The family of this 75-nucleotide RNA from Cellulomonas aerilata is "c-di-GMP-I-GGC riboswitch aptamer". A search with the family's covariance model found it, with a score of 66 bits. NCBI's taxonomy places the organism under Bacteria, Bacillati, Actinomycetota, Micrococcales, Cellulomonas.

[Rfam]
RNA sequence: AGCGAGAAGGGCAAACCCGUCGAGAGGCGGGGACGCAAAGCCACGGGACCGUCCAGGUCAGCCGGGCCACCGAAC
Numbered sequence: 001a002g003c004g005a006g007a008a009g010g011g012c013a014a015a016c017c018c019g020u021c022g023a024g025a026g027g028c029g030g031g032g033a034c035g036c037a038a039a040g041c042c043a044c045g046g047g048a049c050c051g052u053c054c055a056g057g058u059c060a061g062c063c064g065g066g067c068c069a070c071c072g073a074a075c
Base pairs, nucleotide, nucleotide: 003072004071011036012035016031017030018029019028020027021026034061040067041066042065044064045063046062047059048058049057